RNA sequence: ACACAAGGAAGGAGGUGGUCCGCGAAAUUGAUAGCUUCAUGGACAUGUGAGGUGGCUGCGCGCUAGCAGCACCUGCUCGGAAGAGCUGGCGUCACAAGUGCGCUAGCGAAUUCCCCGCAGUCACCCGGCCCCCGAGCUUCCGGUUUUUGUCCGACCAGGAACACGGCUCGGGGGCCGCUCCAU
Numbered sequence: 001a002c003a004c005a006a007g008g009a010a011g012g013a014g015g016u017g018g019u020c021c022g023c024g025a026a027a028u029u030g031a032u033a034g035c036u037u038c039a040u041g042g043a044c045a046u047g048u049g050a051g052g053u054g055g056c057u058g059c060g061c062g063c064u065a066g067c068a069g070c071a072c073c074u075g076c077u078c079g080g081a082a083g084a085g086c087u088g089g090c091g092u093c094a095c096a097a098g099u100g101c102g103c104u105a106g107c108g109a110a111u112u113c114c115c116c117g118c119a120g121u122c123a124c125c126c127g128g129c130c131c132c133c134g135a136g137c138u139u140c141c142g143g144u145u146u147u148u149g150u151c152c153g154a155c156c157a158g159g160a161a162c163a164c165g166g167c168u169c170g171g172g173g174g175c176c177g178c179u180c181c182a183u
Stems, first nucleotide, its partner, number of pairs: 015059005061108007069101004126177013140158001142156004

Notes
A member of the RNA family "Actinobacteria sRNA Ms_IGR-5" from Mycobacterium colombiense, 183 nucleotides long. A reference for the family is Li et al. (2013), "Identification of small RNAs in Mycobacterium smegmatis using heterologous Hfq", RNA. Taxonomically the source falls in Mycobacterium colombiense (Bacteria, Actinomycetes, Mycobacteriales, Mycobacterium).